This 33-nucleotide sequence from Capra hircus belongs to the Rfam family "Iron response element I". NCBI's taxonomy places the organism under Eukaryota, Deuterostomia, Teleostomi, Bovidae, Capra. Gene Ontology term of the family: response to iron ion. Pairs were carried over by alignment from the consensus structure, which is taken from published work.
RNA sequence: CUGUCUCGCUUCAACAGUGCUUGGACGGAACAG
Numbered sequence: 001c002u003g004u005c006u007c008g009c010u011u012c013a014a015c016a017g018u019g020c021u022u023g024g025a026c027g028g029a030a031c032a033g
Base pairs, nucleotide, nucleotide: 001033002032003031004030006029007028008026010025011024012023013022014021015019